[Rfam]
RNA: Hepatitis C virus stem-loop I
Organism: Orthohepacivirus hominis
RNA sequence: CAAUCGGGUGGCAGCGAGCCUCAGGAAGCUCGGGGCGCCCCCAUUGA
Numbered sequence: 001c002a003a004u005c006g007g008g009u010g011g012c013a014g015c016g017a018g019c020c021u022c023a024g025g026a027a028g029c030u031c032g033g034g035g036c037g038c039c040c041c042c043a044u045u046g047a
Base pairs, nucleotide, nucleotide: 006042007041008040010039011038018036019035020034021033022032024030025029